tRNA: an 89-nucleotide RNA from Kroppenstedtia pulmonis.
The match comes from Rfam's covariance-model search (56 bits).
The family's RNA type in Rfam is transfer RNA.
Rfam's curators write: Transfer RNA (tRNA) molecules are approximately 80 nucleotides in length.
Rfam 15.1 lists 5,335,975 matches to the family in 14,413 species.
RNA sequence: GGAGAGAUACUCAAGAGGCCGAAGAGGACGGUUUGCUAAACCGUUAGGGGGCUCAUAGCCCCGCGCGGGUUCGAAUCCCGCUCUCUCCG
Numbered sequence: 001g002g003a004g005a006g007a008u009a010c011u012c013a014a015g016a017g018g019c020c021g022a023a024g025a026g027g028a029c030g031g032u033u034u035g036c037u038a039a040a041c042c043g044u045u046a047g048g049g050g051g052c053u054c055a056u057a058g059c060c061c062c063g064c065g066c067g068g069g070u071u072c073g074a075a076u077c078c079c080g081c082u083c084u085c086u087c088c089g
Base pairs, nucleotide, nucleotide: 001088002087003086004085005084006083007082010026011025012024028044029043030042031041032040065081066080067079068078069077